[Rfam]
RNA sequence: AAAUAAAAUAUUUGUGAAGUUUAUAUAGGCUCAAAAUUGGUUGAGCGUCUCUACCAGCUACCGUAAUAGCUGCCUAUAAAUUUCCGCAUGAAGGAU
Numbered sequence: 001a002a003a004u005a006a007a008a009u010a011u012u013u014g015u016g017a018a019g020u021u022u023a024u025a026u027a028g029g030c031u032c033a034a035a036a037u038u039g040g041u042u043g044a045g046c047g048u049c050u051c052u053a054c055c056a057g058c059u060a061c062c063g064u065a066a067u068a069g070c071u072g073c074c075u076a077u078a079a080a081u082u083u084c085c086g087c088a089u090g091a092a093g094g095a096u
Stems, first nucleotide, its partner, number of pairs: 018082008029046006055072006
RNA: Purine riboswitch aptamer